Source information:
Epstein-Barr virus stable intronic sequence RNA 2: a 76-nucleotide RNA from Pseudonaja textilis. On this family, see Moss et al., RNA Biol 2014: "RNA families in Epstein-Barr virus". The pairing is the family consensus, mapped onto this sequence. The family's RNA type in Rfam is non-coding RNA gene.

RNA sequence: CCUGCAGACUUUUGGGGGGAUUUUCCCAGGGUCUCUGCAGACAGAGACCUUGGGAAAAUCCCAAAAAGUCUGCAGG
Numbered sequence: 001c002c003u004g005c006a007g008a009c010u011u012u013u014g015g016g017g018g019g020a021u022u023u024u025c026c027c028a029g030g031g032u033c034u035c036u037g038c039a040g041a042c043a044g045a046g047a048c049c050u051u052g053g054g055a056a057a058a059u060c061c062c063a064a065a066a067a068g069u070c071u072g073c074a075g076g
Base pairs, nucleotide, nucleotide: 001076002075003074004073005072006071007070008069009068012066017062018061019060020059021058022057023056024055025054026053027052028051029050030049031048033046034045035044036043037042